[Rfam]
Shown here is a 61-nucleotide RNA sequence from Tetracentron sinense, a member of the family "Plastid-psbN 5UTR RNA". By type it is a cis-regulatory element. The literature on the family includes a 2023 paper in Plant Commun by Richter et al., "Retrograde signaling in plants: A critical review focusing on the GUN pathway and beyond". The match comes from Rfam's covariance-model search (71 bits). Rfam describes the family as follows. Plastid psbN is a non-coding RNA (ncRNA) recognised in plastids. It was reported as a conserved 11 stem-loop in the prime untranslated region (5UTR) of psbN genes. Pairs were carried over by alignment from the consensus structure, which was predicted with LocARNA.
RNA sequence: UGCAACACCCAUCAAAGGAGUAGUACCCUAUCCAUGAGCUACUUUACCAUAUUCCAAAUUC
Dot-bracket structure: ................((((((((.(.........).))))))))................
Numbered sequence: 001u002g003c004a005a006c007a008c009c010c011a012u013c014a015a016a017g018g019a020g021u022a023g024u025a026c027c028c029u030a031u032c033c034a035u036g037a038g039c040u041a042c043u044u045u046a047c048c049a050u051a052u053u054c055c056a057a058a059u060u061c
Stems, first nucleotide, its partner, number of pairs: 017045008026036001